[Rfam]
Nucleotides: 136
Base pairs, nucleotide, nucleotide: 001057002056003055004054005053006052014044015043016042017041018040068129069128070127072126074124083119086116087115088114089113090112091111092110093109094108
Number, partner (000 for none) and nucleotide at each position: 001057g002056c003055a004054u005053g006052g007000a008000u009000g010000a011000a012000u013000u014044c015043u016042g017041c018040a019000c020000u021000a022000g023000c024000u025000u026000u027000c028000c029000u030000c031000a032000g033000u034000a035000g036000c037000u038000a039000a040018u041017g042016c043015a044014g045000u046000c047000a048000g049000a050000c051000a052006c053005u054004a055003u056002g057001c058000c059000a060000g061000a062000a063000u064000a065000a066000a067000u068129u069128c070127c071000u072126u073000u074124u075000u076000c077000a078000u079000g080000c081000u082000g083119a084000u085000c086116g087115g088114u089113a090112u091111g092110c093109u094108c095000u096000u097000u098000c099000u100000g101000u102000g103000a104000g105000a106000a107000u108094g109093g110092g111091c112090a113089u114088g115087c116086c117000c118000u119083u120000g121000c122000a123000a124074g125000u126072g127070g128069g129068a130000u131000a132000c133000a134000u135000a136000u
Shown here is a 136-nucleotide RNA sequence from Otus sunia, a member of the family "Small nucleolar RNA SNORA15". The source organism's lineage runs through Eukaryota, Bilateria, Saurischia, Aves and Otus. The family's RNA type in Rfam is H/ACA-box small nucleolar RNA. Rfam's curators write: ACA15 is a member of the H/ACA class of snoRNA that guide the sites of modification of uridines to pseudouridines. On this family, see Huttenhofer et al., EMBO J 2001: "RNomics: an experimental approach that identifies 201 candidates for novel, small, non-messenger RNAs in mouse". Gene Ontology terms of the family: nucleolus and RNA processing. It scores 72 bits against the family's covariance model.